[Rfam]
RNA sequence: AUUUGAACCAUCAUAAGAGAACAAUGAAGCAAACUUUAAAUACUUGGUGGUGGUCUAAUUUACGUCGACAGUCGUGAACUAAGCUCCUAUUGUAUUUAAUAAACAUAUAAAGGCUUGUC
Numbered sequence: 001a002u003u004u005g006a007a008c009c010a011u012c013a014u015a016a017g018a019g020a021a022c023a024a025u026g027a028a029g030c031a032a033a034c035u036u037u038a039a040a041u042a043c044u045u046g047g048u049g050g051u052g053g054u055c056u057a058a059u060u061u062a063c064g065u066c067g068a069c070a071g072u073c074g075u076g077a078a079c080u081a082a083g084c085u086c087c088u089a090u091u092g093u094a095u096u097u098a099a100u101a102a103a104c105a106u107a108u109a110a111a112g113g114c115u116u117g118u119c
Base pairs, nucleotide, nucleotide: 036099037098038097040095041094042093043092047088049087050086052084056081057080059078060077061076062072063071
RNA: Bacteroidete tryptophan peptide leader RNA